[Rfam]
RNA sequence: UAAAUAAAUAUAUAUAUGAAGUUGGAACGUUUGUCUAUGUUUGCCGCUACGGGCACUGUUGCAGCUGCAUACAAAUUUAAGUUA
Numbered sequence: 001u002a003a004a005u006a007a008a009u010a011u012a013u014a015u016a017u018g019a020a021g022u023u024g025g026a027a028c029g030u031u032u033g034u035c036u037a038u039g040u041u042u043g044c045c046g047c048u049a050c051g052g053g054c055a056c057u058g059u060u061g062c063a064g065c066u067g068c069a070u071a072c073a074a075a076u077u078u079a080a081g082u083u084a
Stems, first nucleotide, its partner, number of pairs: 008078001010076002013073001015071002018068001020066005026060004034052002039047002